[Rfam]
RNA sequence: GCUCCGGUCACGGCGGGCACGGCCGCCGCCGGUACCUCGUACGGCCGGCGCGG
Numbered sequence: 001g002c003u004c005c006g007g008u009c010a011c012g013g014c015g016g017g018c019a020c021g022g023c024c025g026c027c028g029c030c031g032g033u034a035c036c037u038c039g040u041a042c043g044g045c046c047g048g049c050g051c052g053g
Stems, first nucleotide, its partner, number of pairs: 003017004023053003027050007
Description
This 53-nucleotide RNA from Actinomadura rudentiformis belongs to the Rfam family "L17-Actino-Proteobacteria ribosomal protein leader". The family's RNA type in Rfam is cis-regulatory leader. Taxonomically the source falls in Actinomadura (Bacteria, Bacillati, Actinomycetes, Thermomonosporaceae).